Shown here is an 87-nucleotide sequence from Triticum aestivum, a member of the family "MIR1120/MIR1122 microRNA precursor family". A search with the family's covariance model found it, with a score of 89 bits. Its family is annotated with RISC complex and miRNA-mediated post-transcriptional gene silencing in the Gene Ontology. For this family Rfam cites "Cloning and characterization of microRNAs from wheat (Triticum aestivum L.)" (Yao et al., Genome Biol, 2007).
RNA sequence: GUACUCCCUCCGCCCCAUAAUGUAAGACGCUUUUUGACACUAGUGUAGUGUCAAAAAGCAUCUUACAUUAUAGGACGGAGGGAGUAA
Dot-bracket structure: ..(((.(((((..((.(.(((((((((.(((((((((((((.....))))))))))))).))))))))).).))..))))).)))..